[Rfam]
RNA sequence: GUGUCCGCUUGGCGGAACGUCCCCCUGGGGUCUUGUGCUCGACCGAUACCCUGAUCUGGUGCGCCGUUCCGCAGGGGCCGCGCAUAGCCGACAGCCGUCGCACCCAUAGGGAGCACCUUCAUG
Numbered sequence: 001g002u003g004u005c006c007g008c009u010u011g012g013c014g015g016a017a018c019g020u021c022c023c024c025c026u027g028g029g030g031u032c033u034u035g036u037g038c039u040c041g042a043c044c045g046a047u048a049c050c051c052u053g054a055u056c057u058g059g060u061g062c063g064c065c066g067u068u069c070c071g072c073a074g075g076g077g078c079c080g081c082g083c084a085u086a087g088c089c090g091a092c093a094g095c096c097g098u099c100g101c102a103c104c105c106a107u108a109g110g111g112a113g114c115a116c117c118u119u120c121a122u123g
Stems, first nucleotide, its partner, number of pairs: 060084004066078004087101002090099003
Streptomyces-metH RNA: a 123-nucleotide sequence from Streptomyces daliensis. The source organism's lineage runs through Bacteria, Bacillati, Actinomycetes, Kitasatosporales and Streptomyces.